[Rfam]
RNA sequence: CCGGUUCCGGUUCACAUCGGGCUCCAUGCUCGAUGACCCGGCGACC
Numbered sequence: 001c002c003g004g005u006u007c008c009g010g011u012u013c014a015c016a017u018c019g020g021g022c023u024c025c026a027u028g029c030u031c032g033a034u035g036a037c038c039c040g041g042c043g044a045c046c
Base pairs, nucleotide, nucleotide: 003046004045005044007041008040009039010038015035016034017033018032019031020030021029022028
Rfam assigns this 46-nucleotide RNA sequence from Gordonia iterans to the family "L31-Actinobacteria ribosomal protein leader".
Pairs were carried over by alignment from the consensus structure, which is taken from published work.
It is annotated as a cis-regulatory leader.
Clan: Ribosomal Protein L31 Leader clan.
It scores 52 bits against the family's covariance model.
For this family Rfam cites "Discovery of 20 novel ribosomal leader candidates in bacteria and archaea" (Eckert and Weinberg, BMC Microbiol, 2020).
The organism belongs to Gordonia, within Bacteria.